[Rfam]
RNA sequence: AAUAGCUCGGUCAUCUCAAGGGUGGUCGGCAUUACACCCCGAGGAAGGGGGUGAUGCCUUUGACGGUUUUCGAAUCCUUAAUGUUCGCCAUCGCGUUCGCAGGAUUGAUCGUCUCCAUUUUGUCUCAUAACGACAAAUAAUCCACCCUUGAGUUAGCGGCUCACGGUGGAUUAUAGUUACGUCUAUUUGUGUGCCGACCUCUUUAAGAGACCGACUAUUGGGGCCGUUGGUGUUGCAUCACCAGCG
Numbered sequence: 001a002a003u004a005g006c007u008c009g010g011u012c013a014u015c016u017c018a019a020g021g022g023u024g025g026u027c028g029g030c031a032u033u034a035c036a037c038c039c040c041g042a043g044g045a046a047g048g049g050g051g052u053g054a055u056g057c058c059u060u061u062g063a064c065g066g067u068u069u070u071c072g073a074a075u076c077c078u079u080a081a082u083g084u085u086c087g088c089c090a091u092c093g094c095g096u097u098c099g100c101a102g103g104a105u106u107g108a109u110c111g112u113c114u115c116c117a118u119u120u121u122g123u124c125u126c127a128u129a130a131c132g133a134c135a136a137a138u139a140a141u142c143c144a145c146c147c148u149u150g151a152g153u154u155a156g157c158g159g160c161u162c163a164c165g166g167u168g169g170a171u172u173a174u175a176g177u178u179a180c181g182u183c184u185a186u187u188u189g190u191g192u193g194c195c196g197a198c199c200u201c202u203u204u205a206a207g208a209g210a211c212c213g214a215c216u217a218u219u220g221g222g223g224c225c226g227u228u229g230g231u232g233u234u235g236c237a238u239c240a241c242c243a244g245c246g
Stems, first nucleotide, its partner, number of pairs: 001219003005215001006213001007197005015152008024142003032054003037050004062124005075090001099116001101114002163178001164176001200210002225246008